[Rfam]
RNA: Glm Y RNA activator of glmS mRNA
RNA sequence: AGUCGCUCAUUCACCUUGAUAUGACAGCGUCACACGCUAGGCAAUACGACCGCUCCAUAUCUGCCGAAUGAUGCCAAUGUAUGGUGCCUACUGUCCAACGUAACCGUUAAUCGCUGCCUUGGCGGCGAUUAACAAUCACAGGGCGACACGUUGAGUGAGGCACCUCCUA
Numbered sequence: 001a002g003u004c005g006c007u008c009a010u011u012c013a014c015c016u017u018g019a020u021a022u023g024a025c026a027g028c029g030u031c032a033c034a035c036g037c038u039a040g041g042c043a044a045u046a047c048g049a050c051c052g053c054u055c056c057a058u059a060u061c062u063g064c065c066g067a068a069u070g071a072u073g074c075c076a077a078u079g080u081a082u083g084g085u086g087c088c089u090a091c092u093g094u095c096c097a098a099c100g101u102a103a104c105c106g107u108u109a110a111u112c113g114c115u116g117c118c119u120u121g122g123c124g125g126c127g128a129u130u131a132a133c134a135a136u137c138a139c140a141g142g143g144c145g146a147c148a149c150g151u152u153g154a155g156u157g158a159g160g161c162a163c164c165u166c167c168u169a
Stems, first nucleotide, its partner, number of pairs: 005074002007071006019060005026054003083164007092145005106133007147157003